[Rfam]
Description:
Shown here is a 74-nucleotide RNA from Octodon degus, a member of the family "U1A polyadenylation inhibition element (PIE)". The base pairs follow the family's consensus structure, which is taken from published work. From the family's description: This family represents the U1A polyadenylation inhibition element (PIE). PIE is a regulatory RNA which is responsible for the regulation of the length of the polyA tail of the U1A pre-mRNA. The PIE is located in the U1A mRNA 3' UTR. PIE adopts a U-shaped structure, with binding sites for a single U1A protein at each bend and when complexed with the two proteins it blocks activity of poly(A) polymerase (PAP), and inhibits its activity. Rfam classes the family as a cis-regulatory element. Taxonomically the source falls in Octodon (Eukaryota, Opisthokonta, Deuterostomia, Dipnotetrapodomorpha).
Nucleotides: 074
Stems, first nucleotide, its partner, number of pairs: 005052005017046004022035004
Number, partner (000 for none) and nucleotide at each position: 001000c002000u003000a004000c005052a006051c007050a008049g009048u010000a011000u012000u013000g014000c015000a016000c017046c018045c019044a020043g021000a022035g023034u024033c025032u026000c027000u028000c029000c030000c031000u032025a033024g034023a035022c036000a037000u038000u039000g040000c041000a042000u043020c044019u045018g046017g047000c048009a049008c050007u051006g052005u053000u054000a055000g056000g057000c058000u059000g060000g061000a062000a063000u064000u065000a066000a067000a068000g069000u070000g071000g072000g073000u074000u